The record is a 104-nucleotide RNA sequence from Pontibacter qinzhouensis, which matches "Bacteroidales small SRP" in Rfam. The match comes from Rfam's covariance-model search (74 bits). The literature on the family includes a 2020 paper in Nat Commun by Ryan et al., "A high-resolution transcriptome map identifies small RNA regulation of metabolism in the gut microbe Bacteroides thetaiotaomicron". Rfam classes the family as a non-coding RNA gene. The organism belongs to Pontibacter, within Bacteria.
RNA sequence: UUUGCAACGGCAAAUCGGCACGGUCAGCUCCCGCCGAACUCCCCCAGGCACGGAAGUGAGCAAGGGUAGGCGGUUGUAGCGACGCGAUGUUGGUUUGCCACUUU
Numbered sequence: 001u002u003u004g005c006a007a008c009g010g011c012a013a014a015u016c017g018g019c020a021c022g023g024u025c026a027g028c029u030c031c032c033g034c035c036g037a038a039c040u041c042c043c044c045c046a047g048g049c050a051c052g053g054a055a056g057u058g059a060g061c062a063a064g065g066g067u068a069g070g071c072g073g074u075u076g077u078a079g080c081g082a083c084g085c086g087a088u089g090u091u092g093g094u095u096u097g098c099c100a101c102u103u104u
Base pairs, nucleotide, nucleotide: 009099010098011097012096013095014094015093016092017091018090019089020088021086022085023083024082